[Rfam]
RNA sequence: GGGCUCGUGGUUUAGUGGUAUAAUACUCCCUUAGCAUCUCUAGAACACCUGGAACAGCGAUUGGGAGUGGUCCGGGGUUCGAUUCCCCGCGAGUCCA
Numbered sequence: 001g002g003g004c005u006c007g008u009g010g011u012u013u014a015g016u017g018g019u020a021u022a023a024u025a026c027u028c029c030c031u032u033a034g035c036a037u038c039u040c041u042a043g044a045a046c047a048c049c050u051g052g053a054a055c056a057g058c059g060a061u062u063g064g065g066a067g068u069g070g071u072c073c074g075g076g077g078u079u080c081g082a083u084u085c086c087c088c089g090c091g092a093g094u095c096c097a
Base pairs, nucleotide, nucleotide: 001096002095003094004093005092006091007090010024011023012022026067027066028065029064030063073089074088075087076086077085